[Rfam]
This 134-nucleotide RNA from Sparus aurata belongs to the Rfam family "Small nucleolar RNA SNORA3/SNORA45 family".
The family's RNA type in Rfam is H/ACA-box small nucleolar RNA.
A reference for the family is Gu et al. (2005), "A novel experimental approach for systematic identification of box H/ACA snoRNAs from eukaryotes", Nucleic Acids Res.
About the family: The members of this family belong to the H/ACA class of snoRNAs which are thought to guide the sites of modification of uridines to pseudouridines. This family includes mouse snoMBI-28 and human homologues ACA3 (SNORA3) and ACA3-2 (SNORA45). Both ACA3 and ACA3-2 share the same host gene. MBI-28, ACA3 and ACA3-2 are all predicted to guide the pseudouridylation of residues in 28S rRNA.
The match comes from Rfam's covariance-model search (72 bits).
The family's consensus secondary structure was predicted with RNAalifold.
Rfam 15.1 lists 2,080 matches to the family in 639 species.
Its Rfam clan is "SNORA3 clan".
RNA sequence: AGCGAGGCUAGAGUCACGCCUCGCCACUGACCUGUUGUCCUGGUGUGCUAGAGUGCUCGCAGAGGAAAUGGUCUGUGCUUAUUCAUUGGCUGUAGUCUGUUGUGACCCCGCCAAUCACCAUCUCAGACACACUA
Numbered sequence: 001a002g003c004g005a006g007g008c009u010a011g012a013g014u015c016a017c018g019c020c021u022c023g024c025c026a027c028u029g030a031c032c033u034g035u036u037g038u039c040c041u042g043g044u045g046u047g048c049u050a051g052a053g054u055g056c057u058c059g060c061a062g063a064g065g066a067a068a069u070g071g072u073c074u075g076u077g078c079u080u081a082u083u084c085a086u087u088g089g090c091u092g093u094a095g096u097c098u099g100u101u102g103u104g105a106c107c108c109c110g111c112c113a114a115u116c117a118c119c120a121u122c123u124c125a126g127a128c129a130c131a132c133u134a
Base pairs, nucleotide, nucleotide: 002060003059004058005057006056007054008053009052012049013048015047016046017045018044019043020042023039025037026036073126074125075124077122079120085115086114087113088112089111092108095106096105097104
Taxonomically the source falls in Sparus (Eukaryota, Actinopterygii, Euteleosteomorpha, Eurypterygia).